[Rfam]
RNA: Eukaryotic large subunit ribosomal RNA, nucleotides 1452 to 1872
Organism: Gossypium laxum
RNA sequence: GGUAGUAGCAAAUAUUCAGAUCAGAACUUUGAAGGCCGAAAAGAGGAAAGGUUUCAUGUGAACGGCACUUACACAUGGGUUCGUCGAUCCUAAGAGACGAGGGAAGCCCGUCUGAUAGUGUGCCUAGCACGAGUUUCGAAAAGGAAUCGGGUUAAAAUUCUUGAACUGGGACGCGGUGGCUGACAGUAAUGUUAGGGACUCUAAAAUGUCUGCAAGGGCCUCGAAAAGAGUUAUCUUUUUUGUUUAACGACCAGCCCACCCUAGAAAGGGCUCAGCUGGAGGUAAGGUCCAGCGGCCGGAAGAGCACCGCAUAUCGUGUGGUGUCCGAUGCCACCCCGACGGCCCUUGAAAAUCUAGAGGACUGAGUGUCGAUCGUACUCAUAAUAGCAUCAUGUCUCCAAGGUGAACAGCCUCUGGUCAA
Dot-bracket structure: ..............((((((.......))))))((((.....(.((..((...((((((....(.....)..))))))......(((.(....(((((..((....)).))).......................)).....)...(((((........)))))..(((..(((.......((((....))))......((((.(..(((..(..((...(((((.(((.........))).))...((.((.....(((.((.....((.....)).....)).))).....)).))......(((((((.....)))))))..))).....))..)..))).........).)))).......)))))).)))..)).....((......)).)).).((((.....))))..))))..
Numbered sequence: 001g002g003u004a005g006u007a008g009c010a011a012a013u014a015u016u017c018a019g020a021u022c023a024g025a026a027c028u029u030u031g032a033a034g035g036c037c038g039a040a041a042a043g044a045g046g047a048a049a050g051g052u053u054u055c056a057u058g059u060g061a062a063c064g065g066c067a068c069u070u071a072c073a074c075a076u077g078g079g080u081u082c083g084u085c086g087a088u089c090c091u092a093a094g095a096g097a098c099g100a101g102g103g104a105a106g107c108c109c110g111u112c113u114g115a116u117a118g119u120g121u122g123c124c125u126a127g128c129a130c131g132a133g134u135u136u137c138g139a140a141a142a143g144g145a146a147u148c149g150g151g152u153u154a155a156a157a158u159u160c161u162u163g164a165a166c167u168g169g170g171a172c173g174c175g176g177u178g179g180c181u182g183a184c185a186g187u188a189a190u191g192u193u194a195g196g197g198a199c200u201c202u203a204a205a206a207u208g209u210c211u212g213c214a215a216g217g218g219c220c221u222c223g224a225a226a227a228g229a230g231u232u233a234u235c236u237u238u239u240u241u242g243u244u245u246a247a248c249g250a251c252c253a254g255c256c257c258a259c260c261c262u263a264g265a266a267a268g269g270g271c272u273c274a275g276c277u278g279g280a281g282g283u284a285a286g287g288u289c290c291a292g293c294g295g296c297c298g299g300a301a302g303a304g305c306a307c308c309g310c311a312u313a314u315c316g317u318g319u320g321g322u323g324u325c326c327g328a329u330g331c332c333a334c335c336c337c338g339a340c341g342g343c344c345c346u347u348g349a350a351a352a353u354c355u356a357g358a359g360g361a362c363u364g365a366g367u368g369u370c371g372a373u374c375g376u377a378c379u380c381a382u383a384a385u386a387g388c389a390u391c392a393u394g395u396c397u398c399c400a401a402g403g404u405g406a407a408c409a410g411c412c413u414c415u416g417g418u419c420a421a
Stems, first nucleotide, its partner, number of pairs: 015033006034419004043399001045397002049379002054078006064070001085375003089143001094137002096112003101108002147164005167371003172368003182193004200358004205353001208343003213338001216335002221328003224244002227241003248298002251295002258288003262284002269277002305323007385394002401413004